RNA sequence: UGCAUUUCGGAGGCAGUGACCUUCCAAAUGCU
Numbered sequence: 001u002g003c004a005u006u007u008c009g010g011a012g013g014c015a016g017u018g019a020c021c022u023u024c025c026a027a028a029u030g031c032u
Stems, first nucleotide, its partner, number of pairs: 002031006009025003012021002014018001
RNA: Iron response element II
Organism: Nyctibius bracteatus